[Rfam]
RNA: Plastid-rpl20 3UTR RNA
Organism: Apostasia shenzhenica
RNA sequence: CACAAUUUCCCGGAGAAUGCACUCCGGGAAUAUAGAAGAAAAAAAUGAAGAUGAGUAGUCGAAAUAAACGAAUAUCUUUCAAG
Numbered sequence: 001c002a003c004a005a006u007u008u009c010c011c012g013g014a015g016a017a018u019g020c021a022c023u024c025c026g027g028g029a030a031u032a033u034a035g036a037a038g039a040a041a042a043a044a045a046u047g048a049a050g051a052u053g054a055g056u057a058g059u060c061g062a063a064a065u066a067a068a069c070g071a072a073u074a075u076c077u078u079u080c081a082a083g
Stems, first nucleotide, its partner, number of pairs: 007030009066079003